[Rfam]
Shown here is a 100-nucleotide RNA sequence from Salarchaeum sp. JOR-1, a member of the family "L4-Archaeoglobi ribosomal protein leades". The source organism's lineage runs through Archaea, Methanobacteriati, Methanobacteriota, Halobacteria and Salarchaeum. A reference for the family is Eckert and Weinberg (2020), "Discovery of 20 novel ribosomal leader candidates in bacteria and archaea", BMC Microbiol. The family's RNA type in Rfam is cis-regulatory leader.
RNA sequence: CUGAAGGGCGCGUCCGGGUCAAUUGCGGCAUGCAACACCCGAUCUCCCUCCACACACCUCCCGGUAUGGAGGUUCGCGAGGGGGAGCGCGUGACCAUCAG
Numbered sequence: 001c002u003g004a005a006g007g008g009c010g011c012g013u014c015c016g017g018g019u020c021a022a023u024u025g026c027g028g029c030a031u032g033c034a035a036c037a038c039c040c041g042a043u044c045u046c047c048c049u050c051c052a053c054a055c056a057c058c059u060c061c062c063g064g065u066a067u068g069g070a071g072g073u074u075c076g077c078g079a080g081g082g083g084g085a086g087c088g089c090g091u092g093a094c095c096a097u098c099a100g
Stems, first nucleotide, its partner, number of pairs: 001100004008091006015041004023035005043085008